[Rfam]
RNA: Clostridiales-3 RNA
RNA sequence: UAGUAGGCUGAUGGAUUGAGAGAUGAAGGCUGAGAGGCUGGAUGGAAGUCCGAGAAAAUGUGGGAGUAGAUAUGUGGCGUAAGGAUAAUAAUCCAUGAAGGGCGAGAGGUUCGUCCUGGUCCUCGCAAGGCAGAUAGGGGAGAUAGUGCUUCUCUUAUGAGAAGGGCGUCGUGAACACAGUUAAGUGGCUCGUCUGUAGCUCCCAGAGGUGAGUACACCUUGUUGUAUACGGGGCGAUGAGGGGUCAAGAAGACCGGCGUAUACCUUAA
Numbered sequence: 001u002a003g004u005a006g007g008c009u010g011a012u013g014g015a016u017u018g019a020g021a022g023a024u025g026a027a028g029g030c031u032g033a034g035a036g037g038c039u040g041g042a043u044g045g046a047a048g049u050c051c052g053a054g055a056a057a058a059u060g061u062g063g064g065a066g067u068a069g070a071u072a073u074g075u076g077g078c079g080u081a082a083g084g085a086u087a088a089u090a091a092u093c094c095a096u097g098a099a100g101g102g103c104g105a106g107a108g109g110u111u112c113g114u115c116c117u118g119g120u121c122c123u124c125g126c127a128a129g130g131c132a133g134a135u136a137g138g139g140g141a142g143a144u145a146g147u148g149c150u151u152c153u154c155u156u157a158u159g160a161g162a163a164g165g166g167c168g169u170c171g172u173g174a175a176c177a178c179a180g181u182u183a184a185g186u187g188g189c190u191c192g193u194c195u196g197u198a199g200c201u202c203c204c205a206g207a208g209g210u211g212a213g214u215a216c217a218c219c220u221u222g223u224u225g226u227a228u229a230c231g232g233g234g235c236g237a238u239g240a241g242g243g244g245u246c247a248a249g250a251a252g253a254c255c256g257g258c259g260u261a262u263a264c265c266u267u268a269a
Stems, first nucleotide, its partner, number of pairs: 006031004015024003094173003099117007120141005142170003146167002149164005176187003206221006225264007243255004